Shown here is a 372-nucleotide RNA from Polymorphobacter multimanifer, a member of the family "Bacterial RNase P class A". A reference for the family is Brown (1999), "The Ribonuclease P Database", Nucleic Acids Res. It scores 297 bits against the family's covariance model. The family's RNA type in Rfam is ribozyme. Gene Ontology terms of the family: tRNA processing, dimeric ribonuclease P complex and ribonuclease P activity.
RNA sequence: UCAGGUGAUCGGGCGGCCGCUGGAGCGAUCCAGAGGAAAGUCCGGGCUCCACGGAACACGGUGCCGGGUAAUUCCCGGCGGGGGUGACCCCAGGGACAGUGCCACAGAGAGCAGACCGCCGAUGGACCGAAAGGUCACAGGCAAGGGUGAAAGGGUGCGGCAAGAGCGCACCGCGCUUCCGGCAACGGCAAGCGGCAUGGCAAACCCCACCGGGAGCAAGACCGAAUAGGGGCAGCACGAGCAGCAAUGCUCAGGGCAGGAACCGGCCCCGCUGCCCGGGUUGGUUGCACGAGGCGGCUGGCGACAGCCGUCCCAGAUGAAUGGUCGCCCCCCGAAAGGGGACAGAACCCGGCUUACAGAUCACCUGACCAC
Numbered sequence: 001u002c003a004g005g006u007g008a009u010c011g012g013g014c015g016g017c018c019g020c021u022g023g024a025g026c027g028a029u030c031c032a033g034a035g036g037a038a039a040g041u042c043c044g045g046g047c048u049c050c051a052c053g054g055a056a057c058a059c060g061g062u063g064c065c066g067g068g069u070a071a072u073u074c075c076c077g078g079c080g081g082g083g084g085u086g087a088c089c090c091c092a093g094g095g096a097c098a099g100u101g102c103c104a105c106a107g108a109g110a111g112c113a114g115a116c117c118g119c120c121g122a123u124g125g126a127c128c129g130a131a132a133g134g135u136c137a138c139a140g141g142c143a144a145g146g147g148u149g150a151a152a153g154g155g156u157g158c159g160g161c162a163a164g165a166g167c168g169c170a171c172c173g174c175g176c177u178u179c180c181g182g183c184a185a186c187g188g189c190a191a192g193c194g195g196c197a198u199g200g201c202a203a204a205c206c207c208c209a210c211c212g213g214g215a216g217c218a219a220g221a222c223c224g225a226a227u228a229g230g231g232g233c234a235g236c237a238c239g240a241g242c243a244g245c246a247a248u249g250c251u252c253a254g255g256g257c258a259g260g261a262a263c264c265g266g267c268c269c270c271g272c273u274g275c276c277c278g279g280g281u282u283g284g285u286u287g288c289a290c291g292a293g294g295c296g297g298c299u300g301g302c303g304a305c306a307g308c309c310g311u312c313c314c315a316g317a318u319g320a321a322u323g324g325u326c327g328c329c330c331c332c333c334g335a336a337a338g339g340g341g342a343c344a345g346a347a348c349c350c351g352g353c354u355u356a357c358a359g360a361u362c363a364c365c366u367g368a369c370c371a372c
Base pairs, nucleotide, nucleotide: 001368002367003366004365005364006363007362008361009360010359011357012329013328014327015326016325017324018323020033021032022031023030024029038355039354040353042352043351044350045349046348047216048215049214050213054263057260059212060211061210062209063208064078065077066076067075068074079093080091081090082089083088094207095206099205100204101201102200103199116146117145118142119141120140123139124138125136126135127134128133154172155171156170157169158168159167173196174194175193176192177191178190179188180187181186220286221285222284223283230277231276232275233274234273235272254269255268256267257266293312294311295310296309297308298307299306300305